RNA: mir-33 microRNA precursor family
RNA sequence: CUAGGGUGCAUUGUAGUUGCAUUGCAUGUGCACAACAGAAGUGCAAUGUAACUGCAGUGCAGCCCAG
Numbered sequence: 001c002u003a004g005g006g007u008g009c010a011u012u013g014u015a016g017u018u019g020c021a022u023u024g025c026a027u028g029u030g031c032a033c034a035a036c037a038g039a040a041g042u043g044c045a046a047u048g049u050a051a052c053u054g055c056a057g058u059g060c061a062g063c064c065c066a067g
Base pairs, nucleotide, nucleotide: 001067002066004064006063007061008060009059010058011057012056013055014054015053016052019049021047022046023045024044025043026042027041